RNA sequence: GGGGGCGAGCUUGGAUUCGACGGGGAUGUUGGAGUAAGAGGAGCGAGCCCAGGACCAUGGCCUGGAUAAAACAUGGAUCGUAAAUUUAAAUGCCGACGAAGAUUACGCUUUAGCUGCUGCGUAAAUUAACGUAGCACGUCCACUCGUUCCUUUCCUGCGGGAACGAGACCGGGCGCCAACCCUAGCAGGAUACCGGUGUGAGUUGCCUCGCUCGUUCCGGGAAACCAAUUGAGGCUAGCUUUACAAGGAUCCCGCCUCUAGGAGCCUUGUAAAGCGAAAUCAAAAAUUAGAGGCUACGCUCGUAGAGCCUCUUGCUUGGGCAUCUCCGGACGGGGGUUCAAUUCCCCCCGCCUCCACCA
Numbered sequence: 001g002g003g004g005g006c007g008a009g010c011u012u013g014g015a016u017u018c019g020a021c022g023g024g025g026a027u028g029u030u031g032g033a034g035u036a037a038g039a040g041g042a043g044c045g046a047g048c049c050c051a052g053g054a055c056c057a058u059g060g061c062c063u064g065g066a067u068a069a070a071a072c073a074u075g076g077a078u079c080g081u082a083a084a085u086u087u088a089a090a091u092g093c094c095g096a097c098g099a100a101g102a103u104u105a106c107g108c109u110u111u112a113g114c115u116g117c118u119g120c121g122u123a124a125a126u127u128a129a130c131g132u133a134g135c136a137c138g139u140c141c142a143c144u145c146g147u148u149c150c151u152u153u154c155c156u157g158c159g160g161g162a163a164c165g166a167g168a169c170c171g172g173g174c175g176c177c178a179a180c181c182c183u184a185g186c187a188g189g190a191u192a193c194c195g196g197u198g199u200g201a202g203u204u205g206c207c208u209c210g211c212u213c214g215u216u217c218c219g220g221g222a223a224a225c226c227a228a229u230u231g232a233g234g235c236u237a238g239c240u241u242u243a244c245a246a247g248g249a250u251c252c253c254g255c256c257u258c259u260a261g262g263a264g265c266c267u268u269g270u271a272a273a274g275c276g277a278a279a280u281c282a283a284a285a286a287u288u289a290g291a292g293g294c295u296a297c298g299c300u301c302g303u304a305g306a307g308c309c310u311c312u313u314g315c316u317u318g319g320g321c322a323u324c325u326c327c328g329g330a331c332g333g334g335g336g337u338u339c340a341a342u343u344c345c346c347c348c349c350g351c352c353u354c355c356a357c358c359a
Stems, first nucleotide, its partner, number of pairs: 001355007021328010032317010044302005049065005055076005115136008137175005143167004148162004153190006193220004198215004205235005238275010250263003254294004332348005
Dot-bracket structure: (((((((.............((((((((((.((((((((((..((((((((((.[[[[[.)))))......]]]]]......................................((((((((......))))))))(((((.((((.((((.[[[[[[)))).))))...))))).........]]]]]]..((((.((((...[[[[[..)))).))))..........]]]]]..((((((((((..(((.[[[[...)))..))))))))))...............]]]]...))))).....)))))))))).))))))))))...(((((.......))))))))))))....
Rfam assigns this 359-nucleotide RNA from Natranaerobius thermophilus to the family "transfer-messenger RNA". It scores 205 bits against the family's covariance model. Taxonomically the source falls in Natranaerobius thermophilus (Bacteria, Bacillati, Clostridia, Natranaerobiales). By type it is a non-coding RNA gene.